[Rfam]
Rfam assigns this 102-nucleotide sequence from Halanaerobium salsuginis to the family "Purine riboswitch aptamer". On this family, see Mandal et al., Cell 2003: "Riboswitches Control Fundamental Biochemical Pathways in Bacillus subtilis and Other Bacteria". Taxonomically the source falls in Halanaerobium (Bacteria, Bacillati, Bacillota, Halanaerobiales). About the family: Riboswitches are metabolite binding domains within certain messenger RNAs that serve as precision sensors for their corresponding targets. Allosteric rearrangement of mRNA structure is mediated by ligand binding, and this results in modulation of gene expression. A class of riboswitches that selectively recognises guanine and becomes saturated at concentrations as low as 5 nM. In Bacillus subtilis, this mRNA motif is located on at least five separate transcriptional units that together encode 17 genes that are mostly involved in purine transport and purine nucleotide biosynthesis. It has also been shown that some members of this family are specific for adenine instead. Hence this family are termed purine riboswitches.
RNA sequence: UUGAAAAUUUAAUUUGUACCUCAUAUAAUAGUGGGAAUAUGGCUCACAAGUCUCUACCGAAUUACCGUAAAUAAUUCGACUAUGGGGGAAGUGUACCUAGGU
Numbered sequence: 001u002u003g004a005a006a007a008u009u010u011a012a013u014u015u016g017u018a019c020c021u022c023a024u025a026u027a028a029u030a031g032u033g034g035g036a037a038u039a040u041g042g043c044u045c046a047c048a049a050g051u052c053u054c055u056a057c058c059g060a061a062u063u064a065c066c067g068u069a070a071a072u073a074a075u076u077c078g079a080c081u082a083u084g085g086g087g088g089a090a091g092u093g094u095a096c097c098u099a100g101g102u
Stems, first nucleotide, its partner, number of pairs: 019087007029049001031047005058078007